Annotation: The record is a 358-nucleotide sequence, which matches "Pestivirus internal ribosome entry site (IRES) including 5'UTR SLI" in Rfam. The base pairs follow the family's consensus structure. Its Rfam clan is "IRES1 clan". A reference for the family is Kolupaeva et al. (2000), "Ribosomal binding to the internal ribosomal entry site of classical swine fever virus", RNA. From the family's description: This family represents the internal ribosome entry site (IRES) of the the pestiviruses. The pestivirus IRES allows cap and end-independent translation of mRNA in the host cell. The IRES achieves this by mediating the internal initiation of translation by recruiting a ribosomal 43S pre-initiation complex directly to the initiation codon and eliminates the requirement for eIF4F. The classical swine virus UTR described in appears to be longer at the 5' end than other pestivirus UTRs. This family represents the conserved core.
RNA sequence: UGUAACAUCACAAAGUCACCAAAUUUGCUCCAGCUACGAGGUUGGCGGACCGGAGUUAACCAGGCUCCCAGUACGACACCCUCUCGACUAAAUGGCUGGAACUGCUAACUAGGAGACCAUGCAUGAAGCACUAAGUCCGGAGUACCGGGCAUUCUACUGCAGCUCUGCACUCAACGACGGUCUCGGAACGGCCUAGAGUCCAGGAUAGCUGUGUAGGUAGAGGACAUGUCCAAGUGUGUAGUGUGGCCCAGCGGGGGUUGCUGGGUCUGCUACUGCGGAUGCAGUAGUCAUGGACUGCCUGAUAGGGUCUCGGCGGACAGCCUAGUGUUUAGCAGUAUAAUAGUCCGUUGUAACCAAA
Dot-bracket structure: .............................((((((....((.((.......(.(((.......)))).........)).))............)))))).((((((.((((((((.(((((.((...((((...((((((....))))))..(((((.(((((((((.((((.(...................).)))).))))...)))))....)))))(((....)))..))))...))..((((((((((...))))))))))...((((((....))))))..))))).))((((....))))..[[[[[[[[..))))))....))))))......]]]]]]]]........
Numbered sequence: 001u002g003u004a005a006c007a008u009c010a011c012a013a014a015g016u017c018a019c020c021a022a023a024u025u026u027g028c029u030c031c032a033g034c035u036a037c038g039a040g041g042u043u044g045g046c047g048g049a050c051c052g053g054a055g056u057u058a059a060c061c062a063g064g065c066u067c068c069c070a071g072u073a074c075g076a077c078a079c080c081c082u083c084u085c086g087a088c089u090a091a092a093u094g095g096c097u098g099g100a101a102c103u104g105c106u107a108a109c110u111a112g113g114a115g116a117c118c119a120u121g122c123a124u125g126a127a128g129c130a131c132u133a134a135g136u137c138c139g140g141a142g143u144a145c146c147g148g149g150c151a152u153u154c155u156a157c158u159g160c161a162g163c164u165c166u167g168c169a170c171u172c173a174a175c176g177a178c179g180g181u182c183u184c185g186g187a188a189c190g191g192c193c194u195a196g197a198g199u200c201c202a203g204g205a206u207a208g209c210u211g212u213g214u215a216g217g218u219a220g221a222g223g224a225c226a227u228g229u230c231c232a233a234g235u236g237u238g239u240a241g242u243g244u245g246g247c248c249c250a251g252c253g254g255g256g257g258u259u260g261c262u263g264g265g266u267c268u269g270c271u272a273c274u275g276c277g278g279a280u281g282c283a284g285u286a287g288u289c290a291u292g293g294a295c296u297g298c299c300u301g302a303u304a305g306g307g308u309c310u311c312g313g314c315g316g317a318c319a320g321c322c323u324a325g326u327g328u329u330u331a332g333c334a335g336u337a338u339a340a341u342a343g344u345c346c347g348u349u350g351u352a353a354c355c356a357a358a
Stems, first nucleotide, its partner, number of pairs: 030099006040081002043078002052067001054066003101336006108326006114296002117293005123242002128237004135150006153221005159212005164204004169199004174194001222231003245267010271286006297308004311350008